[Rfam]
RNA sequence: GUUUCAUCCAGAGGAUCCGAGGGACCUGGCCCGGCGACGGUCCGGCAACCUGCCCACGGGCAAGGUGCCAACGCCAGGAACGAUGAGAA
Numbered sequence: 001g002u003u004u005c006a007u008c009c010a011g012a013g014g015a016u017c018c019g020a021g022g023g024a025c026c027u028g029g030c031c032c033g034g035c036g037a038c039g040g041u042c043c044g045g046c047a048a049c050c051u052g053c054c055c056a057c058g059g060g061c062a063a064g065g066u067g068c069c070a071a072c073g074c075c076a077g078g079a080a081c082g083a084u085g086a087g088a089a
Stems, first nucleotide, its partner, number of pairs: 002088007013043005021032003026077004044069004049065002051062004073081001

The family of this 89-nucleotide RNA sequence from Planotetraspora thailandica is "SAM riboswitch aptamer (S box leader)". Gene Ontology term of the family: regulation of gene expression. Taxonomically the source falls in Planotetraspora (Bacteria, Bacillati, Actinomycetota, Streptosporangiaceae). The match comes from Rfam's covariance-model search (64 bits).